[Rfam]
RNA sequence: GGUAGUAGCAAAUAUUCAAAUGAGAACUUUGAAGGCCGAAGUGGAGAAAGGUUCCAUGUGAACAGCAGUUGGACAUGGGUUAGUCGAUCCUAAGUCGCAAGGGAACCCUGUCAGGAUGCGAGGCUUUCCACGCCUCCGUUCGGCGAAAGGGAAUCGGGUUAAUAUUCCCGAACCGGAACGCGGAUAUCGCGCUCGGCUCUCGAGCUUGGCGCGUUUGCGGCAACGCAACGGAACCCGACGACGUCGGCGGUGACCCCGGGAAGAGUUCUCUUUUCUUGUUAACUAUUCGUCGACCAUGGAAUCUGUUUGCCAGGAGAUAUGGUCUUGCAAUAGGUAAAGCCCUGCACUUCUUGCAGAGUCCGGUGCGUCGCCUACGGCCCUUGAAAAGUCGGGGGACAGAUUGAUUUUCGCGUCCGUUCGUACUCAUAACCGCAGCAGGUCUCCAAGGUGAGCAGCCUCUGGCCCA
Numbered sequence: 001g002g003u004a005g006u007a008g009c010a011a012a013u014a015u016u017c018a019a020a021u022g023a024g025a026a027c028u029u030u031g032a033a034g035g036c037c038g039a040a041g042u043g044g045a046g047a048a049a050g051g052u053u054c055c056a057u058g059u060g061a062a063c064a065g066c067a068g069u070u071g072g073a074c075a076u077g078g079g080u081u082a083g084u085c086g087a088u089c090c091u092a093a094g095u096c097g098c099a100a101g102g103g104a105a106c107c108c109u110g111u112c113a114g115g116a117u118g119c120g121a122g123g124c125u126u127u128c129c130a131c132g133c134c135u136c137c138g139u140u141c142g143g144c145g146a147a148a149g150g151g152a153a154u155c156g157g158g159u160u161a162a163u164a165u166u167c168c169c170g171a172a173c174c175g176g177a178a179c180g181c182g183g184a185u186a187u188c189g190c191g192c193u194c195g196g197c198u199c200u201c202g203a204g205c206u207u208g209g210c211g212c213g214u215u216u217g218c219g220g221c222a223a224c225g226c227a228a229c230g231g232a233a234c235c236c237g238a239c240g241a242c243g244u245c246g247g248c249g250g251u252g253a254c255c256c257c258g259g260g261a262a263g264a265g266u267u268c269u270c271u272u273u274u275c276u277u278g279u280u281a282a283c284u285a286u287u288c289g290u291c292g293a294c295c296a297u298g299g300a301a302u303c304u305g306u307u308u309g310c311c312a313g314g315a316g317a318u319a320u321g322g323u324c325u326u327g328c329a330a331u332a333g334g335u336a337a338a339g340c341c342c343u344g345c346a347c348u349u350c351u352u353g354c355a356g357a358g359u360c361c362g363g364u365g366c367g368u369c370g371c372c373u374a375c376g377g378c379c380c381u382u383g384a385a386a387a388g389u390c391g392g393g394g395g396a397c398a399g400a401u402u403g404a405u406u407u408u409c410g411c412g413u414c415c416g417u418u419c420g421u422a423c424u425c426a427u428a429a430c431c432g433c434a435g436c437a438g439g440u441c442u443c444c445a446a447g448g449u450g451a452g453c454a455g456c457c458u459c460u461g462g463c464c465c466a
Base pairs, nucleotide, nucleotide: 015033016032017031018030019029020028034464035463036462037461043444044443045442046441049424050423054078055077056076057075058074059073063071064070085420086419087418089150090149094144095143097111098110100109101108102107120136121135122134123133154171155170156169157168158167174416175415176414177413179412180411181410182409183408184406189226190225191224234393235392236391237390238389239388243378244377245376246375249372250371251370252369253368254367256363257362258361259279261277262276263275264274283333284332285331286330287329293323294322295321296320297319298318302314303313304312305311340358342356343355344354345353346352430439431438446458447457448456449455

Record summary:
The family of this 466-nucleotide part of an RNA from Clytia hemisphaerica is "Eukaryotic large subunit ribosomal RNA".